[Rfam]
RNA sequence: AGGUAAAGCCUGCUGUACCUUUAUCACCGCAGGCACUCGGCCAUGCUGUGGGUAUGGAUGCCUUAGACGUGGAUCGUCGAGGGUGUGGCGUGAGGAGGGGUUGAAUGCCCC
Numbered sequence: 001a002g003g004u005a006a007a008g009c010c011u012g013c014u015g016u017a018c019c020u021u022u023a024u025c026a027c028c029g030c031a032g033g034c035a036c037u038c039g040g041c042c043a044u045g046c047u048g049u050g051g052g053u054a055u056g057g058a059u060g061c062c063u064u065a066g067a068c069g070u071g072g073a074u075c076g077u078c079g080a081g082g083g084u085g086u087g088g089c090g091u092g093a094g095g096a097g098g099g100g101u102u103g104a105a106u107g108c109c110c111c
Stems, first nucleotide, its partner, number of pairs: 001020004008034006036094004040089008050063005066078004097111005
Dot-bracket structure: [[[[...((((((...]]]]........)))))).((((((((((((..(((((....)))))..((((.....))))...)))))))).))))..(((((.....)))))
epsC RNA: a 111-nucleotide sequence from Cohnella sp. AR92. Pairs were carried over by alignment from the consensus structure, which is taken from published work. It scores 98 bits against the family's covariance model. Rfam classes the family as a cis-regulatory element.